[Rfam]
RNA sequence: GAGUAUUAUGGUUCUUUCAGAAUUUGUCUAGCAGGUUUUCUGGUCUUUACCAGAAAAGUCCCC
Numbered sequence: 001g002a003g004u005a006u007u008a009u010g011g012u013u014c015u016u017u018c019a020g021a022a023u024u025u026g027u028c029u030a031g032c033a034g035g036u037u038u039u040c041u042g043g044u045c046u047u048u049a050c051c052a053g054a055a056a057a058g059u060c061c062c063c
Base pairs, nucleotide, nucleotide: 034060035059036058037056038055039054040053041052042051043050044049
The record is a 63-nucleotide RNA from Cercocebus atys, which matches "U7 small nuclear RNA" in Rfam.
NCBI's taxonomy places the organism under Eukaryota, Theria, Boreoeutheria, Cercopithecoidea, Cercocebus.
From the family's description: Animal histone pre-mRNAs are spliced by a different mechanism than nuclear pre-mRNAs and self-splicing introns.
Pairs were carried over by alignment from the consensus structure, which was predicted with PFOLD.